RNA sequence: GAAGUCCUGAUGUGUACGUUGUACACCUAGUUUUGACCGAACAUUUAUUUAUUUGGGAGUCCGGUGUUUUCAAAUGAAGUAAAUGCCUCAUCUUUAUUCGGAGACCCUGAGGACUUACAACCGUUUGAAACAGGACACCCACCUGCUUGAGUGCGGGUUCAAAACGAAGGAAACGGCAACGGCACAAUCGGGACUUCG
Numbered sequence: 001g002a003a004g005u006c007c008u009g010a011u012g013u014g015u016a017c018g019u020u021g022u023a024c025a026c027c028u029a030g031u032u033u034u035g036a037c038c039g040a041a042c043a044u045u046u047a048u049u050u051a052u053u054u055g056g057g058a059g060u061c062c063g064g065u066g067u068u069u070u071c072a073a074a075u076g077a078a079g080u081a082a083a084u085g086c087c088u089c090a091u092c093u094u095u096a097u098u099c100g101g102a103g104a105c106c107c108u109g110a111g112g113a114c115u116u117a118c119a120a121c122c123g124u125u126u127g128a129a130a131c132a133g134g135a136c137a138c139c140c141a142c143c144u145g146c147u148u149g150a151g152u153g154c155g156g157g158u159u160c161a162a163a164a165c166g167a168a169g170g171a172a173a174c175g176g177c178a179a180c181g182g183c184a185c186a187a188u189c190g191g192g193a194c195u196u197c198g
Stems, first nucleotide, its partner, number of pairs: 002196010012185004017181003030165003034161003037157002055140003059136004064131001069129007081116002086112005

6S / SsrS RNA: a 198-nucleotide sequence from Metabacillus arenae.
For this family Rfam cites "6S RNA in Rhodobacter sphaeroides: 6S RNA and pRNA transcript levels peak in late exponential phase and gene deletion causes a high salt stress phenotype" (Elkina et al., RNA Biol, 2017).
The organism belongs to Metabacillus, within Bacteria.
The family's consensus secondary structure is taken from published work.
E. coli 6S RNA was the first non coding RNA to be sequenced, but its function was unknown until recently. It consists of 184 nucleotides that fold into an extended hairpin structure with a large single-stranded internal bulge. The 6S RNA specifically associates with RNA polymerase holoenzyme containing the sigma70 specificity factor.